[Rfam]
RNA: THF (Tetrahydrofolate) riboswitch aptamer
Organism: Ruminococcus flavefaciens
RNA sequence: UGAAGAGUAAAAAUGCGUUCGUUAAGUGUUGACUGAACGGGGAGUUGUCAGUCAAACGAAAAGCUUCGGCUUGCGGUUCGUAUUUUGCAUCCCGCUUCA
Number, nucleotide and partner (000 for none) at each position: 001u099002g098003a097004a096005g095006a000007g000008u000009a000010a086011a085012a084013a083014u082015g081016c080017g079018u000019u000020c075021g074022u073023u000024a000025a000026g057027u056028g000029u055030u054031g053032a052033c051034u050035g049036a048037a000038c000039g000040g092041g091042g090043a000044g088045u000046u000047g000048u036049c035050a034051g033052u032053c031054a030055a029056a027057c026058g000059a000060a000061a072062a071063g070064c069065u000066u000067c000068g000069g064070c063071u062072u061073g022074c021075g020076g000077u000078u000079c017080g016081u015082a014083u013084u012085u011086u010087g000088c044089a000090u042091c041092c040093c000094g000095c005096u004097u003098c002099a001